[Rfam]
RNA sequence: GACUCGCGGCGAACUUUGCUUCAUAUAAUCCCGAUGAUAUGGUUCGGGAGUUUCUACCAAGAGCCGCAAAUUCUUGAUUAUGAAGUCUUUAACUUUUUUA
Numbered sequence: 001g002a003c004u005c006g007c008g009g010c011g012a013a014c015u016u017u018g019c020u021u022c023a024u025a026u027a028a029u030c031c032c033g034a035u036g037a038u039a040u041g042g043u044u045c046g047g048g049a050g051u052u053u054c055u056a057c058c059a060a061g062a063g064c065c066g067c068a069a070a071u072u073c074u075u076g077a078u079u080a081u082g083a084a085g086u087c088u089u090u091a092a093c094u095u096u097u098u099u100a
Base pairs, nucleotide, nucleotide: 018086019085020084021083022082023081024080025079029049030048031047032046033045034044058076059075060074061073062072063071
Purine riboswitch aptamer: a 100-nucleotide sequence from Ferrimonas sediminicola. The match comes from Rfam's covariance-model search (76 bits). Pairs were carried over by alignment from the consensus structure, which is taken from published work.